[Rfam]
RNA sequence: UCGCUGGAGCCUCCCGGGCUAGUCUGAUGAUAAAAUUAAUGAGGAAUUAAGCCCCAAAGCUCCUGCUAGAUUGGUGCCAUUCGUGUUGCAGUUCUGUCUGAAAUCUUUAACUGGCUUAACUGUGUCAAGGCAAUGUCUAGAUGC
Numbered sequence: 001u002c003g004c005u006g007g008a009g010c011c012u013c014c015c016g017g018g019c020u021a022g023u024c025u026g027a028u029g030a031u032a033a034a035a036u037u038a039a040u041g042a043g044g045a046a047u048u049a050a051g052c053c054c055c056a057a058a059g060c061u062c063c064u065g066c067u068a069g070a071u072u073g074g075u076g077c078c079a080u081u082c083g084u085g086u087u088g089c090a091g092u093u094c095u096g097u098c099u100g101a102a103a104u105c106u107u108u109a110a111c112u113g114g115c116u117u118a119a120c121u122g123u124g125u126c127a128a129g130g131c132a133a134u135g136u137c138u139a140g141a142u143g144c
Stems, first nucleotide, its partner, number of pairs: 003066002006063005016054005021048002023045003076137001078135004084127002087124006096115003
Description: small nucleolar RNA snoR134: a 144-nucleotide RNA sequence from Raphanus sativus. A search with the family's covariance model found it, with a score of 96 bits. A reference for the family is Chen and Wu (2009), "Mining small RNA sequencing data: a new approach to identify small nucleolar RNAs in Arabidopsis", Nucleic Acids Res. Gene Ontology terms of the family: RNA processing and nucleolus. NCBI's taxonomy places the organism under Eukaryota, Euphyllophyta, Mesangiospermae, Brassicales, Raphanus. It is annotated as an H/ACA-box small nucleolar RNA. Pairs were carried over by alignment from the consensus structure, which was predicted with RNAalifold.